c-di-AMP riboswitch aptamer (ydaO/yuaA leader): a 168-nucleotide RNA sequence from Streptosporangium carneum. Lineage of the source: Bacteria > Actinomycetota > Actinomycetes > Streptosporangiales > Streptosporangium. Rfam links the family to the GO terms cyclic-di-AMP binding and regulation of gene expression.
RNA sequence: GGGAAACGGCCGCCGAAUUCGCGAUCUUGCGGAGCCGGGGACCCACUCUGUCCGAGGUGAAUCCUCUGUUGGGGUGAAUCGGCGCGCCCGCCAUGCGGCGGCGUGCCGUAGGGCACUUCCACGCCCGAACCCGUCAGCUAACCCGGUAGGCGGCAUGGAAGCGAAGCA
Numbered sequence: 001g002g003g004a005a006a007c008g009g010c011c012g013c014c015g016a017a018u019u020c021g022c023g024a025u026c027u028u029g030c031g032g033a034g035c036c037g038g039g040g041a042c043c044c045a046c047u048c049u050g051u052c053c054g055a056g057g058u059g060a061a062u063c064c065u066c067u068g069u070u071g072g073g074g075u076g077a078a079u080c081g082g083c084g085c086g087c088c089c090g091c092c093a094u095g096c097g098g099c100g101g102c103g104u105g106c107c108g109u110a111g112g113g114c115a116c117u118u119c120c121a122c123g124c125c126c127g128a129a130c131c132c133g134u135c136a137g138c139u140a141a142c143c144c145g146g147u148a149g150g151c152g153g154c155a156u157g158g159a160a161g162c163g164a165a166g167c168a
Stems, first nucleotide, its partner, number of pairs: 011152004018033005034147006044071002072132003080108009111126004